[Rfam]
This 80-nucleotide sequence from Monodelphis domestica belongs to the Rfam family "Small nucleolar RNA SNORD111". The family's RNA type in Rfam is C/D-box small nucleolar RNA. For this family Rfam cites "RNomics: an experimental approach that identifies 201 candidates for novel, small, non-messenger RNAs in mouse" (Huttenhofer et al., EMBO J, 2001). The base pairs follow the family's consensus structure, which was predicted with RNAalifold. Rfam 15.1 lists 894 matches to the family in 541 species. NCBI's taxonomy places the organism under Eukaryota, Eumetazoa, Chordata, Euteleostomi, Monodelphis.
RNA sequence: CAGCCUGAAAUGAUGAUUCACAUUCAUGUCUCUUCUCUGAGAUUUCUUCUGGAGAAAAUAUGGUGUAACUGAUCAGGCUU
Numbered sequence: 001c002a003g004c005c006u007g008a009a010a011u012g013a014u015g016a017u018u019c020a021c022a023u024u025c026a027u028g029u030c031u032c033u034u035c036u037c038u039g040a041g042a043u044u045u046c047u048u049c050u051g052g053a054g055a056a057a058a059u060a061u062g063g064u065g066u067a068a069c070u071g072a073u074c075a076g077g078c079u080u
Stems, first nucleotide, its partner, number of pairs: 002079004